[Rfam]
RNA sequence: GCAGUCAACCCAGAACUACUAUUAUCAACCAGAUCCCUAAUGGAAGCUUAGUAAUAACUAAGCUACUAAGCAAGAGUACAAUGGACUAUACAACGGUCAACCAGUAUCUAAUAUUGGUCUAAGAUGAAGGAAAAGGGUUGCCUAUGAAUAAGAGAUACGAAUAAGUAGGAUAGUAGUUUU
Numbered sequence: 001g002c003a004g005u006c007a008a009c010c011c012a013g014a015a016c017u018a019c020u021a022u023u024a025u026c027a028a029c030c031a032g033a034u035c036c037c038u039a040a041u042g043g044a045a046g047c048u049u050a051g052u053a054a055u056a057a058c059u060a061a062g063c064u065a066c067u068a069a070g071c072a073a074g075a076g077u078a079c080a081a082u083g084g085a086c087u088a089u090a091c092a093a094c095g096g097u098c099a100a101c102c103a104g105u106a107u108c109u110a111a112u113a114u115u116g117g118u119c120u121a122a123g124a125u126g127a128a129g130g131a132a133a134a135g136g137g138u139u140g141c142c143u144a145u146g147a148a149u150a151a152g153a154g155a156u157a158c159g160a161a162u163a164a165g166u167a168g169g170a171u172a173g174u175a176g177u178u179u180u
Stems, first nucleotide, its partner, number of pairs: 012180010026140005041080002049068005084098004100118007141169005